[Rfam]
RNA sequence: AAAAAGAUAAACCCUGGAUUUCCGUGUCCAACGUUUGACUGUCCGUCUUAUAUGAAAAUUUUUAUAAUUAGUAUUUUUAUUGUUGUUAGAUGAUAAAACAUGAUUAAUAUUUUAUGUGCGACUUGUCUUUUUAUUUUUUUAUAAUUUUUUUUAAAUAAAACGAACAAUCAAACCUUAAACACAAAAACUAGUG
Numbered sequence: 001a002a003a004a005a006g007a008u009a010a011a012c013c014c015u016g017g018a019u020u021u022c023c024g025u026g027u028c029c030a031a032c033g034u035u036u037g038a039c040u041g042u043c044c045g046u047c048u049u050a051u052a053u054g055a056a057a058a059u060u061u062u063u064a065u066a067a068u069u070a071g072u073a074u075u076u077u078u079a080u081u082g083u084u085g086u087u088a089g090a091u092g093a094u095a096a097a098a099c100a101u102g103a104u105u106a107a108u109a110u111u112u113u114a115u116g117u118g119c120g121a122c123u124u125g126u127c128u129u130u131u132u133a134u135u136u137u138u139u140u141a142u143a144a145u146u147u148u149u150u151u152u153a154a155a156u157a158a159a160a161c162g163a164a165c166a167a168u169c170a171a172a173c174c175u176u177a178a179a180c181a182c183a184a185a186a187a188c189u190a191g192u193g
Stems, first nucleotide, its partner, number of pairs: 027179001030176002034172005040166003044162003048158004

Shown here is a 193-nucleotide RNA sequence from Oryza rufipogon, a member of the family "MIR812 microRNA precursor family". It scores 117 bits against the family's covariance model.